[Rfam]
Shown here is a 124-nucleotide RNA from Pelusios castaneus, a member of the family "Small nucleolar RNA SNORA24". The family has 5 seed sequences and 852 matches in Rfam 15.1. Taxonomically the source falls in Pelusios (Eukaryota, Craniata, Sauropsida, Sauria).
RNA sequence: GUCCAUGAAUCCGUGGGACCUGCCGCCUGUGGCAGUCUCCCUUCCUAGCCAUGGAAGAGCAGCGUCUCGCUUUUGGCAUAGCUGGCUCCCCUCUGAUUGGAGUCAGGCUCUGACUGGAGCGAGG
Numbered sequence: 001g002u003c004c005a006u007g008a009a010u011c012c013g014u015g016g017g018a019c020c021u022g023c024c025g026c027c028u029g030u031g032g033c034a035g036u037c038u039c040c041c042u043u044c045c046u047a048g049c050c051a052u053g054g055a056a057g058a059g060c061a062g063c064g065u066c067u068c069g070c071u072u073u074u075g076g077c078a079u080a081g082c083u084g085g086c087u088c089c090c091c092u093c094u095g096a097u098u099g100g101a102g103u104c105a106g107g108c109u110c111u112g113a114c115u116g117g118a119g120c121g122a123g124g
Base pairs, nucleotide, nucleotide: 002055003054004053005052006051007050015041016040017039018038020035021034022033023032024031073122074121075120077117082106083105084104087101088100089099
ACA24 is a member of the H/ACA class of snoRNA that guide the sites of modification of uridines to pseudouridines. Pairs were carried over by alignment from the consensus structure, which was predicted with RNAfold.